[Rfam]
RNA: Lysine riboswitch aptamer
Organism: Leuconostoc lactis
Nucleotides: 168
Stems, first nucleotide, its partner, number of pairs: 006163006017082006025074001034066005086113003089108007114140002117137008142153004
Number, partner (000 for none) and nucleotide at each position: 001000g002000a003000a004000a005000a006163u007162c008161a009160u010159a011158g012000a013000g014000g015000u016000u017082g018081c019080c020079a021078u022077a023000g024000a025074c026000a027000a028000g029000a030000g031000u032000c033000a034066c035065u036064u037063g038062u039000g040000g041000a042000g043000u044000a045000u046000u047000g048000a049000u050000a051000g052000a053000u054000a055000c056000g057000c058000u059000g060000a061000a062038g063037c064036a065035a066034g067000c068000a069000a070000a071000a072000g073000g074025g075000g076000a077022u078021g079020u080019g081018g082017c083000c084000g085000a086113a087112g088111c089108g090107u091106u092105g093104g094103c095102a096000c097000u098000a099000u100000c101000a102095u103094g104093u105092c106091a107090g108089u109000u110000a111088g112087c113086u114140g115139g116000g117137c118136c119135a120134u121133u122132g123131g124130u125000u126000a127000a128000g129000a130124g131123c132122c133121a134120a135119u136118g137117g138000a139115c140114u141000g142153u143152c144151g145150c146000g147000g148000a149000u150145g151144c152143g153142g154000g155000g156000u157000g158011c159010u160009a161008u162007g163006a164000c165000g166000g167000a168000g